This 73-nucleotide RNA sequence from Rattus norvegicus belongs to the Rfam family "mir-205 microRNA precursor family". The family's consensus secondary structure was predicted with RNAalifold. The family has 44 seed sequences and 1,154 matches in Rfam 15.1.
RNA sequence: UCCUCCUGUCCUUCAUUCCACCGGAGUCUGUCUUAUGCCAACCAGAUUUCAGUGGAGUGAAGCUCAGGAGGCA
Numbered sequence: 001u002c003c004u005c006c007u008g009u010c011c012u013u014c015a016u017u018c019c020a021c022c023g024g025a026g027u028c029u030g031u032c033u034u035a036u037g038c039c040a041a042c043c044a045g046a047u048u049u050c051a052g053u054g055g056a057g058u059g060a061a062g063c064u065c066a067g068g069a070g071g072c073a
Stems, first nucleotide, its partner, number of pairs: 011062006019054003023050004028045003
The organism belongs to Rattus, within Eukaryota.